[Rfam]
RNA sequence: AGUAAGUUCGAUUAGCCAAAUCAUAGAUUUGGAAUCUCACUUAAGUUGACGAGGUUGGGGAGUUAUCGAAACUUCGGCGGGUGCCCCACGGUAAAAGGUAUCUUUAUGCAAUCAUUUUUGUUAAGAUACUGAAAGCACUACCGUUAACGACUGGCAAAACUUUAAAGUGAUUUAAAGUACAAAUCCAGUUAGGUGUUAAAG
Numbered sequence: 001a002g003u004a005a006g007u008u009c010g011a012u013u014a015g016c017c018a019a020a021u022c023a024u025a026g027a028u029u030u031g032g033a034a035u036c037u038c039a040c041u042u043a044a045g046u047u048g049a050c051g052a053g054g055u056u057g058g059g060g061a062g063u064u065a066u067c068g069a070a071a072c073u074u075c076g077g078c079g080g081g082u083g084c085c086c087c088a089c090g091g092u093a094a095a096a097g098g099u100a101u102c103u104u105u106a107u108g109c110a111a112u113c114a115u116u117u118u119u120g121u122u123a124a125g126a127u128a129c130u131g132a133a134a135g136c137a138c139u140a141c142c143g144u145u146a147a148c149g150a151c152u153g154g155c156a157a158a159a160c161u162u163u164a165a166a167g168u169g170a171u172u173u174a175a176a177g178u179a180c181a182a183a184u185c186c187a188g189u190u191a192g193g194u195g196u197u198a199a200a201g
Base pairs, nucleotide, nucleotide: 001041002040056088057087058086059085060084066077067076068075069074089143090142091141092140093139149190150189151188152187153186160177161176162175163174164173165172166171

Shown here is a 201-nucleotide RNA sequence from Clostridium saccharobutylicum, a member of the family "glmS glucosamine-6-phosphate activated ribozyme aptamer". This entry contains a glucosamine-6-phosphate activated ribozyme that is found in the mRNA for GlmS. GlmS is an enzyme that uses fructose-6-phosphate and glutamine to generate glucosamine-6-phosphate. The ribozyme catalyses self cleavage of the glmS mRNA that is thought to regulate GlmS activity. It is annotated as a riboswitch. Lineage of the source: Bacteria > Bacillati > Eubacteriales > Clostridium > Clostridium saccharobutylicum.